[Rfam]
Nucleotides: 034
Base pairs, nucleotide, nucleotide: 001025002024003023004022005021006020007019008018009017010016
Number, partner (000 for none) and nucleotide at each position: 001025c002024u003023c004022u005021g006020g007019a008018u009017u010016c011000g012000c013000g014000u015000g016010g017009a018008a019007u020006c021005c022004a023003g024002g025001g026000c027000g028000g029000a030000a031000a032000g033000a034000g